RNA sequence: ACCUUUAAACCGCUGAAACUGUUUUUUCAGUGCGGGGGAACCACAUAUUGACGACAAACUUCGUCUUGGGGUGAAUCUUAUUUAAAAAGAAGGGAUACUCUCAGUCCCUAAUCCGACAGUUAACCUCGUAAGCGUUAUUCUCAAGAGGG
Numbered sequence: 001a002c003c004u005u006u007a008a009a010c011c012g013c014u015g016a017a018a019c020u021g022u023u024u025u026u027u028c029a030g031u032g033c034g035g036g037g038g039a040a041c042c043a044c045a046u047a048u049u050g051a052c053g054a055c056a057a058a059c060u061u062c063g064u065c066u067u068g069g070g071g072u073g074a075a076u077c078u079u080a081u082u083u084a085a086a087a088a089g090a091a092g093g094g095a096u097a098c099u100c101u102c103a104g105u106c107c108c109u110a111a112u113c114c115g116a117c118a119g120u121u122a123a124c125c126u127c128g129u130a131a132g133c134g135u136u137a138u139u140c141u142c143a144a145g146a147g148g149g
Base pairs, nucleotide, nucleotide: 011134012133013132014131018031019030020029032129033128034127035126036125037124042068043067069114070113071112077089078088079087092108093107094106095105